A member of the RNA family "tRNA" from Corynebacterium maris, 73 nucleotides long. From the family's description: Transfer RNA (tRNA) molecules are approximately 80 nucleotides in length. The organism belongs to Corynebacterium maris, within Bacteria. It is annotated as a transfer RNA.
RNA sequence: GCCCCGUUCGUCUAGAGGCCUAGGACGCCGCCCUCUCACGGCGGUAACACGGGUUCGAAUCCCGUACGGGGUA
Numbered sequence: 001g002c003c004c005c006g007u008u009c010g011u012c013u014a015g016a017g018g019c020c021u022a023g024g025a026c027g028c029c030g031c032c033c034u035c036u037c038a039c040g041g042c043g044g045u046a047a048c049a050c051g052g053g054u055u056c057g058a059a060u061c062c063c064g065u066a067c068g069g070g071g072u073a
Stems, first nucleotide, its partner, number of pairs: 001072007010026004028044005049065005